[Rfam]
Nucleotides: 108
Base pairs, nucleotide, nucleotide: 009099010098011097012096013095014094015093
Number, partner (000 for none) and nucleotide at each position: 001000u002000c003000c004000c005000u006000c007000u008000u009099u010098g011097g012096a013095a014094g015093g016000g017000a018000u019000g020000a021000u022000g023000u024000c025000u026000g027000a028000g029000c030000a031000c032000a033000g034000g035000a036000c037000c038000c039000a040000a041000g042000a043000u044000a045000a046000g047000g048000a049000u050000u051000c052000u053000g054000a055000a056000u057000a058000a059000a060000u061000u062000u063000g064000c065000a066000u067000g068000u069000g070000a071000u072000u073000a074000a075000a076000g077000a078000c079000g080000u081000g082000a083000g084000g085000u086000g087000c088000u089000c090000u091000g092000a093015c094014c095013u096012u097011c098010c099009a100000u101000u102000g103000g104000c105000c106000g107000g108000a

Shown here is a 108-nucleotide sequence from Pelodiscus sinensis, a member of the family "Small nucleolar RNA SNORD124".
Rfam 15.1 lists 191 matches to the family in 183 species.
The match comes from Rfam's covariance-model search (42 bits).
For this family Rfam cites "snoSeeker: an advanced computational package for screening of guide and orphan snoRNA genes in the human genome" (Yang et al., Nucleic Acids Res, 2006).